[Rfam]
RNA sequence: AGUUCGAGGCUUAUGCCGGAAGCGCAAGUGACCGGAAUGGCUGAGAGCGUGCCUGUUGAAGAAUGA
Numbered sequence: 001a002g003u004u005c006g007a008g009g010c011u012u013a014u015g016c017c018g019g020a021a022g023c024g025c026a027a028g029u030g031a032c033c034g035g036a037a038u039g040g041c042u043g044a045g046a047g048c049g050u051g052c053c054u055g056u057u058g059a060a061g062a063a064u065g066a
Base pairs, nucleotide, nucleotide: 002048003047004046005045008042009041010040011039052065054063
This 66-nucleotide part of an RNA from Candidatus Endomicrobiellum trichonymphae belongs to the Rfam family "Bacterial large subunit ribosomal RNA". Gene Ontology terms of the family: ribosome and structural constituent of ribosome. Rfam's curators put it in the seed alignment. Lineage of the source: Bacteria > Elusimicrobiota > Endomicrobiia > Endomicrobiales > Candidatus Endomicrobiellum.